[Rfam]
Nucleotides: 068
Base pairs, nucleotide, nucleotide: 001068002067003066004065005064008024009023010022026042027041028040029039030038047063048062049061050060051059
Number, partner (000 for none) and nucleotide at each position: 001068c002067c003066c004065c005064g006000u007000a008024g009023u010022g011000u012000a013000g014000g015000u016000g017000g018000u019000u020000a021000u022010c023009a024008c025000a026042c027041g028040a029039g030038c031000c032000u033000c034000u035000c036000a037000c038030g039029u040028u041027c042026g043000u044000g045000a046000c047063c048062u049061g050060g051059g052000u053000u054000c055000g056000a057000g058000u059051c060050c061049c062048a063047g064005c065004g066003g067002g068001g
Shown here is a 68-nucleotide RNA from Thalassiosira oceanica, a member of the family "tRNA". Gene Ontology term of the family: triplet codon-amino acid adaptor activity. The base pairs follow the family's consensus structure, which is taken from published work. The match comes from Rfam's covariance-model search (45 bits). Taxonomically the source falls in Thalassiosira (Eukaryota, Stramenopiles, Thalassiosirales, Thalassiosiraceae). It is annotated as a transfer RNA.